[Rfam]
RNA: Guanidine-II riboswitch aptamer (mini-ykkC)
RNA sequence: CUGCCGGGACGACCCGGACAGCGCGAGUCAUGGGCCGGGGACGACCCCG
Numbered sequence: 001c002u003g004c005c006g007g008g009a010c011g012a013c014c015c016g017g018a019c020a021g022c023g024c025g026a027g028u029c030a031u032g033g034g035c036c037g038g039g040g041a042c043g044a045c046c047c048c049g
Base pairs, nucleotide, nucleotide: 001021002020003019005016006015007014008013036049037048038047039046040045